[Rfam]
Rfam assigns this 88-nucleotide RNA sequence from Chrysochloris asiatica to the family "mir-449 microRNA precursor family".
Clan: mir-34 clan.
Pairs were carried over by alignment from the consensus structure, which was predicted with RNAalifold.
It scores 71 bits against the family's covariance model.
RNA sequence: UAGGUGUGAUGGGUAGGCAGUGUAUUGUUAGCUGGUUGAAUAUGUAAGUGGCAUCAGCUAACAUGCAGCUGCUAACUUAUUGCAUACA
Numbered sequence: 001u002a003g004g005u006g007u008g009a010u011g012g013g014u015a016g017g018c019a020g021u022g023u024a025u026u027g028u029u030a031g032c033u034g035g036u037u038g039a040a041u042a043u044g045u046a047a048g049u050g051g052c053a054u055c056a057g058c059u060a061a062c063a064u065g066c067a068g069c070u071g072c073u074a075a076c077u078u079a080u081u082g083c084a085u086a087c088a
Stems, first nucleotide, its partner, number of pairs: 001088001004085010016073006022066003027062010041050003